[Rfam]
Nucleotides: 100
Stems, first nucleotide, its partner, number of pairs: 001100001004097005013043005021032002026088004044080004049076002051072003084092001
Number, partner (000 for none) and nucleotide at each position: 001100c002000g003000a004097c005096c006095a007094u008093c009000c010000a011000g012000a013043g014042c015041g016040g017039c018000u019000g020000a021032g022031g023000g024000a025000c026088c027087c028086g029085g030000a031022c032021c033000g034000c035000g036000g037000a038000a039017g040016c041015c042014g043013c044080c045079g046078c047077a048000a049076c050075c051072g052071c053070c054000g055000a056000a057000c058000u059000u060000c061000c062000c063000g064000g065000a066000g067000c068000g069000a070053g071052g072051c073000a074000u075050g076049g077047u078046g079045c080044g081000a082000c083000a084092g085029c086028c087027g088026g089000g090000a091000u092084c093008g094007a095006u096005g097004g098000a099000g100001g

The family of this 100-nucleotide sequence from a Solirubrobacterales bacterium is "SAM riboswitch aptamer (S box leader)". The family's consensus secondary structure is taken from published work. The organism belongs to Solirubrobacterales, within Bacteria. A search with the family's covariance model found it, with a score of 50 bits.